[Rfam]
Nucleotides: 101
Base pairs, nucleotide, nucleotide: 007088008087009086010085011051012050013049014048016045017026018025019024033044034043035042036041057082058081059080060079063076064075065074066073
Number, partner (000 for none) and nucleotide at each position: 001000u002000a003000u004000a005000u006000u007088c008087a009086c010085u011051a012050g013049g014048g015000g016045u017026g018025u019024u020000a021000u022000u023000u024019a025018a026017c027000u028000g029000a030000g031000a032000u033044g034043a035042g036041u037000a038000u039000u040000u041036a042035c043034u044033c045016a046000a047000a048014c049013c050012c051011u052000u053000u054000g055000a056000a057082c058081c059080u060079g061000a062000a063076c064075u065074a066073g067000u068000u069000a070000a071000u072000a073066c074065u075064a076063g077000c078000g079060u080059a081058g082057g083000a084000a085010a086009g087008u088007g089000u090000a091000a092000a093000c094000u095000a096000u097000a098000u099000u100000a101000c